[Rfam]
RNA: mir-31 microRNA precursor family
RNA sequence: AAUAAUGAAUUUGGCAAGAUGUCGGAAUAGCUGAGAGCACAGCGGAUCGAGCCUCUUAUCGUCCGAAAAAAUGUGAAUAUUUUUGAAAAGCGGCUAUGCCUCAUCUAGUCAAUUGCAUUACUU
Numbered sequence: 001a002a003u004a005a006u007g008a009a010u011u012u013g014g015c016a017a018g019a020u021g022u023c024g025g026a027a028u029a030g031c032u033g034a035g036a037g038c039a040c041a042g043c044g045g046a047u048c049g050a051g052c053c054u055c056u057u058a059u060c061g062u063c064c065g066a067a068a069a070a071a072u073g074u075g076a077a078u079a080u081u082u083u084u085g086a087a088a089a090g091c092g093g094c095u096a097u098g099c100c101u102c103a104u105c106u107a108g109u110c111a112a113u114u115g116c117a118u119u120a121c122u123u
Base pairs, nucleotide, nucleotide: 005118006117007116009114011112012111013110014109015108017106018105019104020103021102024100025099027097028096029095030094031093032092033091